[Rfam]
A member of the RNA family "Small nucleolar RNA Z103" from Manihot esculenta, 95 nucleotides long. It scores 73 bits against the family's covariance model. The source organism's lineage runs through Eukaryota, eudicotyledons, Malpighiales, Crotonoideae and Manihot. The literature on the family includes a 2003 paper in Nucleic Acids Res by Chen et al., "The high diversity of snoRNAs in plants: identification and comparative study of 120 snoRNA genes from Oryza sativa". The base pairs follow the family's consensus structure, which was predicted with PFOLD. Rfam 15.1 lists 2,844 matches to the family in 233 species.
RNA sequence: AUGGAGGUAUGAUUUUUUCCCCAGAUGAUCGACGCUGAAUAUACUGUGCGAUUUUUAAUCUCCAUUGAGAUUCACAGCCAGUCUUGCUGAUCCAU
Numbered sequence: 001a002u003g004g005a006g007g008u009a010u011g012a013u014u015u016u017u018u019c020c021c022c023a024g025a026u027g028a029u030c031g032a033c034g035c036u037g038a039a040u041a042u043a044c045u046g047u048g049c050g051a052u053u054u055u056u057a058a059u060c061u062c063c064a065u066u067g068a069g070a071u072u073c074a075c076a077g078c079c080a081g082u083c084u085u086g087c088u089g090a091u092c093c094a095u
Stems, first nucleotide, its partner, number of pairs: 001095005